[Rfam]
RNA sequence: CGAAUCCCGCCCCGGAAGGCUGGCUGCCGCCGGGAAGCGAACAUUGCGUAGCGCGACCGAGAGGAGCGCACGAAGCGUAUGGAGCGAGGACUGAAGCCACGUGACUGACCUCCGAAAGUUCCGAAGCCGUGGUCUCCCUGUUCGUUCUAGGGGGGACGAGACCGAAGCACCCGCAGUAAGUCGUGACCGGAAAGGCACGCCGGCCAGGGGUGUGGAGGCUGGCCGGAGGCUAAGAAGG
Number, nucleotide and partner (000 for none) at each position: 001c000002g000003a000004a000005u000006c000007c000008c000009g000010c000011c034012c033013c032014g031015g030016a000017a000018g028019g027020c026021u000022g000023g000024c000025u000026g020027c019028c018029g000030c015031c014032g013033g012034g011035a000036a000037g085038c084039g000040a000041a000042c081043a080044u079045u077046g076047c072048g071049u070050a000051g000052c068053g067054c066055g000056a000057c064058c063059g000060a000061g000062a000063g058064g057065a000066g054067c053068g052069c000070a049071c048072g047073a000074a000075g000076c046077g045078u000079a044080u043081g042082g000083a000084g038085c037086g000087a000088g000089g000090a000091c000092u000093g000094a000095a000096g000097c000098c000099a000100c000101g000102u000103g000104a000105c000106u232107g230108a000109c229110c228111u227112c226113c225114g224115a000116a000117a000118g000119u000120u000121c000122c000123g000124a000125a000126g223127c222128c221129g220130u000131g219132g157133u156134c155135u000136c152137c151138c150139u149140g000141u000142u000143c000144g000145u000146u000147c000148u000149a139150g138151g137152g136153g000154g000155g134156a133157c132158g000159a000160g000161a000162c218163c217164g000165a000166a000167g213168c212169a211170c210171c209172c208173g000174c000175a000176g000177u000178a000179a000180g000181u000182c000183g000184u000185g000186a000187c000188c000189g000190g000191a000192a000193a000194g000195g000196c000197a000198c000199g000200c000201c000202g000203g000204c000205c000206a000207g000208g172209g171210g170211u169212g168213u167214g000215g000216a000217g163218g162219c131220u129221g128222g127223c126224c114225g113226g112227a111228g110229g109230c107231u000232a106233a000234g000235a000236a000237g000238g000
The record is a 238-nucleotide RNA sequence from Opitutus sp. ER46, which matches "Group II catalytic intron D1-D4-6" in Rfam. Taxonomically the source falls in Opitutus (Bacteria, Verrucomicrobiota, Opitutales, Opitutaceae). From the family's description: Group II introns are found in rRNA, tRNA and mRNA of organelles in fungi, plants and protists, and also in mRNA in bacteria.